[Rfam]
RNA sequence: CAGGAAGCAUCCGAAAAUCCUUAAUAGAGUAGGAA
Dot-bracket structure: .((((....[[[.....))))..........]]].

A member of the RNA family "DUF805b RNA" from Kordia antarctica, 35 nucleotides long.
The family's consensus secondary structure is taken from published work.
The organism belongs to Kordia, within Bacteria.
By type it is a cis-regulatory element.